[Rfam]
Source information: This 89-nucleotide RNA from Colidextribacter sp. OB.20 belongs to the Rfam family "Glycine riboswitch aptamer". The family has 44 seed sequences and 9,425 matches in Rfam 15.1. The pairing is the family consensus, mapped onto this sequence. This family represents the bacterial glycine riboswitch. Taxonomically the source falls in Colidextribacter (Bacteria, Bacillota, Clostridia, Eubacteriales).
RNA sequence: ACGAAGCGCGCAGGAAAACGGCCCCAGGGCCUGCCGAAGGAGUAACACUCUCAGGCGUUCCGCGUUGGAAUAAGGACUGCGCGUGGAUG
Numbered sequence: 001a002c003g004a005a006g007c008g009c010g011c012a013g014g015a016a017a018a019c020g021g022c023c024c025c026a027g028g029g030c031c032u033g034c035c036g037a038a039g040g041a042g043u044a045a046c047a048c049u050c051u052c053a054g055g056c057g058u059u060c061c062g063c064g065u066u067g068g069a070a071u072a073a074g075g076a077c078u079g080c081g082c083g084u085g086g087a088u089g
Stems, first nucleotide, its partner, number of pairs: 006084008020031004033056003036052002040050003

A search with the family's covariance model found it, with a score of 47 bits.